[Rfam]
RNA sequence: AAACAGCUCCCUAUGUUUGGAUCUUUGACAAUUUUGGCUCUCAAGGCCACUUUUGACUUAGACUUCGCUGACGUGGCACCCACAUCCCUUAAGUGAGGUACCACAUGUCGACCAUUGUGGGUGCCACGUCAGCGAAGACUAAGUCAAAAGUGGUUUUGGGGGCCAAAACUGCCAAAGAUCAAAUACAUAAGGGGCUGUUU
Numbered sequence: 001a002a003a004c005a006g007c008u009c010c011c012u013a014u015g016u017u018u019g020g021a022u023c024u025u026u027g028a029c030a031a032u033u034u035u036g037g038c039u040c041u042c043a044a045g046g047c048c049a050c051u052u053u054u055g056a057c058u059u060a061g062a063c064u065u066c067g068c069u070g071a072c073g074u075g076g077c078a079c080c081c082a083c084a085u086c087c088c089u090u091a092a093g094u095g096a097g098g099u100a101c102c103a104c105a106u107g108u109c110g111a112c113c114a115u116u117g118u119g120g121g122u123g124c125c126a127c128g129u130c131a132g133c134g135a136a137g138a139c140u141a142a143g144u145c146a147a148a149a150g151u152g153g154u155u156u157u158g159g160g161g162g163c164c165a166a167a168a169c170u171g172c173c174a175a176a177g178a179u180c181a182a183a184u185a186c187a188u189a190a191g192g193g194g195c196u197g198u199u200u
Stems, first nucleotide, its partner, number of pairs: 001200002004197005012189005017183002020180008029171002032168013071129002074126008
RNA: MIR2619 microRNA precursor family
Organism: Medicago truncatula